RNA sequence: UGGGCUGGUCGCAAGACCCGGGUCCACUACAAGCGGGGAUGUUCCCC
Numbered sequence: 001u002g003g004g005c006u007g008g009u010c011g012c013a014a015g016a017c018c019c020g021g022g023u024c025c026a027c028u029a030c031a032a033g034c035g036g037g038g039a040u041g042u043u044c045c046c047c
Stems, first nucleotide, its partner, number of pairs: 001026006007018004

This 47-nucleotide RNA sequence belongs to the Rfam family "DUF3800-XI RNA".
It is annotated as a small RNA.
Rfam's curators write: Actinobacteria, Firmicutes, Proteobacteria, Spirochaetes (1 example).